RNA sequence: AGGUGGGCCACGCCUCCCCACCGAGUGCGCGACCUAUCUGGAAGGAUAGGAGGA
Numbered sequence: 001a002g003g004u005g006g007g008c009c010a011c012g013c014c015u016c017c018c019c020a021c022c023g024a025g026u027g028c029g030c031g032a033c034c035u036a037u038c039u040g041g042a043a044g045g046a047u048a049g050g051a052g053g054a
Base pairs, nucleotide, nucleotide: 011029012028013027014025015024016023034049035048036047037046038045039044

Background
A member of the RNA family "serC leader", 54 nucleotides long. The literature on the family includes a 2005 paper in Genome Biol by Corbino et al., "Evidence for a second class of S-adenosylmethionine riboswitches and other regulatory RNA motifs in alpha-proteobacteria". This family is a putative regulatory RNA structure that is found upstream of the serC-serA operon in some alpha-proteobacteria. The final stem of the structure overlaps the ribosome binding site of the serC reading frame. Rfam links the family to the GO term regulation of gene expression. The sequence is in the family's curated seed alignment.